[Rfam]
RNA: MIR2593 microRNA precursor family
RNA sequence: AUAUAAGCAAAAGUUCACUUUUUAGUUUCAUUCAAUAUCUAAUGUAUCUAGUCUGUAUUGUAGGUCAGAUACAUUAAUUAUUGAAUGAACCUAAAAAGUGAAUUUUUGCUUAUAU
Dot-bracket structure: .((((((.(((((.(((((((((((.(((((((((((..(((((....(.((...........)).)....)))))..))))))))))).))))))))))).))))).)))))).